Shown here is a 110-nucleotide sequence, a member of the family "SL2 RNA".
Rfam links the family to the GO term mRNA trans splicing, via spliceosome.
The family's consensus secondary structure is taken from published work.
The family's RNA type in Rfam is non-coding RNA gene.
From the family's description: This family represents SL2 RNA. SL2 RNA is involved in trans splicing in lower eukaryotes.
A search with the family's covariance model found it, with a score of 77 bits.
A reference for the family is Dassanayake et al. (2001), "Trans-spliced leader RNA, 5S-rRNA genes and novel variant orphan spliced-leader of the lymphatic filarial nematode Wuchereria bancrofti, and a sensitive polymerase chain reaction based detection assay", Gene.
[Rfam]
RNA sequence: GGUUUUAACCCAAGUAACUAAGGUUAGUAUGGGAGUUCGAUCGUUCGGAAACGAAUGUGUUGAACAAAUAAAUUUUGAGUACGCUUCUCUGGGGUUUCCGGAGGGGCAAA
Numbered sequence: 001g002g003u004u005u006u007a008a009c010c011c012a013a014g015u016a017a018c019u020a021a022g023g024u025u026a027g028u029a030u031g032g033g034a035g036u037u038c039g040a041u042c043g044u045u046c047g048g049a050a051a052c053g054a055a056u057g058u059g060u061u062g063a064a065c066a067a068a069u070a071a072a073u074u075u076u077g078a079g080u081a082c083g084c085u086u087c088u089c090u091g092g093g094g095u096u097u098c099c100g101g102a103g104g105g106g107c108a109a110a
Stems, first nucleotide, its partner, number of pairs: 007036001009032002013028001016025003038062004042057005085108001087106004093099002